[Rfam]
RNA sequence: AGUCCCGAAGAGAGAGGCAGGGUCUGAUCUGCAGCCUCUAUGGCAGCUGUUGAUCAGCCGUUGCUUCUCUCUUUCUCUUCU
Numbered sequence: 001a002g003u004c005c006c007g008a009a010g011a012g013a014g015a016g017g018c019a020g021g022g023u024c025u026g027a028u029c030u031g032c033a034g035c036c037u038c039u040a041u042g043g044c045a046g047c048u049g050u051u052g053a054u055c056a057g058c059c060g061u062u063g064c065u066u067c068u069c070u071c072u073u074u075c076u077c078u079u080c081u
Base pairs, nucleotide, nucleotide: 008073009072010071011070012069013068014067015066016065017064018063019062020061022059024057025056026055027054028053029052032049033048034047035046
RNA: mir-574 microRNA precursor family